RNA sequence: ACUGUGUGAAAGACAUGGGUAGUGAGAUUGUGAAUCUUGAAAACCAUCUCGCUACUGUGUCUCUCACCACGGU
Dot-bracket structure: .......((.(((((..((.((((((((.................)))))))).)).))))).))........